[Rfam]
This 140-nucleotide RNA sequence from Paenibacillus foliorum belongs to the Rfam family "c-di-AMP riboswitch aptamer (ydaO/yuaA leader)". Lineage of the source: Bacteria > Bacillati > Bacillota > Bacilli > Paenibacillus. The match comes from Rfam's covariance-model search (70 bits).
RNA sequence: UAAUACAAAAUGCCGAAUUUCCGCUCCAAACGGAAAACGGGGGAUCCAAUCUUGGGUGAAUUGAUCUCGCUUCAGAGUGAUCAUAGGGAACCUUCAACCGAACCCUCAAGCUAACCUCGUAGGCACCGGAAGGGGAAUAC
Numbered sequence: 001u002a003a004u005a006c007a008a009a010a011u012g013c014c015g016a017a018u019u020u021c022c023g024c025u026c027c028a029a030a031c032g033g034a035a036a037a038c039g040g041g042g043g044a045u046c047c048a049a050u051c052u053u054g055g056g057u058g059a060a061u062u063g064a065u066c067u068c069g070c071u072u073c074a075g076a077g078u079g080a081u082c083a084u085a086g087g088g089a090a091c092c093u094u095c096a097a098c099c100g101a102a103c104c105c106u107c108a109a110g111c112u113a114a115c116c117u118c119g120u121a122g123g124c125a126c127c128g129g130a131a132g133g134g135g136a137a138u139a140c
Base pairs, nucleotide, nucleotide: 011125012124013123014122018036019035020034021033022032023031037120038119039118040117041116042115048052054105055104056103062083063082064081065080086099087098